[Rfam]
Rfam assigns this 76-nucleotide RNA from Myotis myotis to the family "mir-9229 microRNA precursor family". Lineage of the source: Eukaryota > Chordata > Teleostomi > Yangochiroptera > Myotis. The family has 7 seed sequences and 27,225 matches in Rfam 15.1.
RNA sequence: GAGAUGCCCCUGUGGAGCAGGGCUUGCUUCAGUGGGGCUUUGGUGCUCACCAAGUCUGCCCCUUGAGUGUGUCCCU
Numbered sequence: 001g002a003g004a005u006g007c008c009c010c011u012g013u014g015g016a017g018c019a020g021g022g023c024u025u026g027c028u029u030c031a032g033u034g035g036g037g038c039u040u041u042g043g044u045g046c047u048c049a050c051c052a053a054g055u056c057u058g059c060c061c062c063u064u065g066a067g068u069g070u071g072u073c074c075c076u
Stems, first nucleotide, its partner, number of pairs: 001075001003073005009067001011065002014062002017059003021056003029053001032050005037044002
A search with the family's covariance model found it, with a score of 73 bits. Pairs were carried over by alignment from the consensus structure, which was predicted with RNAalifold.